RNA sequence: UAAGGUUGCCUGUGUACCUCAUGCGUCUCUUUGUGGUGUUGUGGGGAAUGAAGGCGACCGAG
Numbered sequence: 001u002a003a004g005g006u007u008g009c010c011u012g013u014g015u016a017c018c019u020c021a022u023g024c025g026u027c028u029c030u031u032u033g034u035g036g037u038g039u040u041g042u043g044g045g046g047a048a049u050g051a052a053g054g055c056g057a058c059c060g061a062g
Stems, first nucleotide, its partner, number of pairs: 004059006017046005024038004